Description:
The record is a 245-nucleotide RNA from Pristionchus pacificus, which matches "Nuclear RNase P" in Rfam. Rfam links the family to the GO terms ribonuclease P complex, tRNA processing and ribonuclease P activity. By type it is a ribozyme. Pairs were carried over by alignment from the consensus structure, which is taken from published work. The match comes from Rfam's covariance-model search (113 bits). About the family: Ribonuclease P (RNase P) is a ubiquitous endoribonuclease, found in archaea, bacteria and eukarya as well as chloroplasts and mitochondria.

RNA sequence: CUGGCGCGAAGACGGCAUUGGGGGUGACUCACAGGGGUAUUUCCCCUCUUCUCUCCCCCGGGAAGGUCUGAGAUGAAGUCCUUGUGUGUCCUAGCAGGACAAGUCUCCGUAAGGAGCUGAUCCCGUACCAGAAACAAUUGUUACCGCUGCUUGAAAGAGUAGUCGUUUGGAUACGGGAUCGACUAGCGAUCACGACACUUAGUGCGAUUGCCACAACAACACAAUUCAGACUAGUCUCGUGCCAG
Numbered sequence: 001c002u003g004g005c006g007c008g009a010a011g012a013c014g015g016c017a018u019u020g021g022g023g024g025u026g027a028c029u030c031a032c033a034g035g036g037g038u039a040u041u042u043c044c045c046c047u048c049u050u051c052u053c054u055c056c057c058c059c060g061g062g063a064a065g066g067u068c069u070g071a072g073a074u075g076a077a078g079u080c081c082u083u084g085u086g087u088g089u090c091c092u093a094g095c096a097g098g099a100c101a102a103g104u105c106u107c108c109g110u111a112a113g114g115a116g117c118u119g120a121u122c123c124c125g126u127a128c129c130a131g132a133a134a135c136a137a138u139u140g141u142u143a144c145c146g147c148u149g150c151u152u153g154a155a156a157g158a159g160u161a162g163u164c165g166u167u168u169g170g171a172u173a174c175g176g177g178a179u180c181g182a183c184u185a186g187c188g189a190u191c192a193c194g195a196c197a198c199u200u201a202g203u204g205c206g207a208u209u210g211c212c213a214c215a216a217c218a219a220c221a222c223a224a225u226u227c228a229g230a231c232u233a234g235u236c237u238c239g240u241g242c243c244a245g
Base pairs, nucleotide, nucleotide: 001245002244003243007239008238009237015212020059021058022057023056024055033047034046035045036044037043068229069228070227071226072225077184078183079182080181087101088100089099090098091097103118105116106115107114108113119180120179121178122177123176124175125174141165143163
The source organism's lineage runs through Eukaryota, Bilateria, Chromadorea, Neodiplogasteridae and Pristionchus.